Record summary:
The record is a 126-nucleotide sequence from Marmota monax, which matches "Small nucleolar RNA SNORA40" in Rfam. The organism belongs to Marmota, within Eukaryota.

RNA sequence: AGCACUUGUACAUGUUUUUGUUUAACUUGUGGACAAGAACUUAUAGACAAAUGCAAAAAUGAAACCUCUUUUGUAACCAAGACACAUUGUUCAAUGUGAAUUUUGGUACAUAGAAGCAGAAAUACU
Number, nucleotide and partner (000 for none) at each position: 001a000002g054003c053004a052005c000006u050007u049008g048009u047010a000011c000012a000013u000014g040015u039016u038017u037018u036019u035020g034021u033022u000023u000024a000025a000026c031027u000028u000029g000030u000031g026032g000033a021034c020035a019036a018037g017038a016039a015040c014041u000042u000043a000044u000045a000046g000047a009048c008049a007050a006051a000052u004053g003054c002055a000056a000057a000058a000059a000060u000061g000062a000063a123064a000065c000066c000067u119068c000069u000070u116071u115072u114073g000074u000075a000076a000077c000078c105079a104080a103081g102082a101083c000084a000085c098086a097087u096088u000089g000090u000091u000092c000093a000094a000095u000096g087097u086098g085099a000100a000101u082102u081103u080104u079105g078106g000107u000108a000109c000110a000111u000112a000113g000114a072115a071116g070117c000118a000119g067120a000121a000122a000123u063124a000125c000126u000
For this family Rfam cites "Mapping to nucleotide resolution of pseudouridine residues in large subunit ribosomal RNAs from representative eukaryotes, prokaryotes, archaebacteria, mitochondria and chloroplasts" (Ofengand and Bakin, J Mol Biol, 1997). Rfam describes the family as follows. The snoRNA ACA 40 belongs to the H/ACA family of snoRNAs and guides the pseudouridylation of 28S rRNA subunit at position U4565. NB This family has a high threshold value to exclude a large number of closely related sequences that do not appear to have conserved H and ACA boxes, and may be pseudogenes.